[Rfam]
RNA sequence: UCAUGAACUUUGUACUACGCACAUUACUUAGACGAGUUAUAAAAAGAUAUAUAGGAA
Number, nucleotide and partner (000 for none) at each position: 001u000002c000003a000004u000005g000006a000007a000008c000009u000010u000011u000012g000013u000014a000015c000016u000017a000018c000019g037020c036021a000022c034023a000024u032025u031026a000027c000028u000029u000030a000031g025032a024033c000034g022035a000036g020037u019038u000039a000040u000041a000042a000043a000044a000045a000046g000047a000048u000049a000050u000051a000052u000053a000054g000055g000056a000057a000

The record is a 57-nucleotide RNA from Anisodus acutangulus, which matches "Plastid-ndhJ 3UTR RNA" in Rfam. The organism belongs to Anisodus, within Eukaryota. Plastid ndhJ is a non-coding RNA (ncRNA) present in plastids. It was identified as a short stem-loop motif in the 3 prime untranslate region (3UTR) of ndhJ gene. On this family, see Richter et al., Plant Commun 2023: "Retrograde signaling in plants: A critical review focusing on the GUN pathway and beyond". The family's RNA type in Rfam is cis-regulatory element. The family's consensus secondary structure was predicted with LocARNA. Rfam 15.1 lists 869 matches to the family in 155 species.